The family of this 103-nucleotide RNA is "wcaG RNA". Rfam classes the family as a cis-regulatory element.

[Rfam]
RNA sequence: UGGAGUUUCCAAUUUCUCUAAAGAAUUGGUGGUGCGGAUGGGGUUUUCAACUCCCGCCGAGUUUCCAAUUUUCUCGUAAUCAAAAUUGGUGGCGAGCCUAAGG
Numbered sequence: 001u002g003g004a005g006u007u008u009c010c011a012a013u014u015u016c017u018c019u020a021a022a023g024a025a026u027u028g029g030u031g032g033u034g035c036g037g038a039u040g041g042g043g044u045u046u047u048c049a050a051c052u053c054c055c056g057c058c059g060a061g062u063u064u065c066c067a068a069u070u071u072u073c074u075c076g077u078a079a080u081c082a083a084a085a086u087u088g089g090u091g092g093c094g095a096g097c098c099u100a101a102g103g
Stems, first nucleotide, its partner, number of pairs: 009029007039056005058076004065089006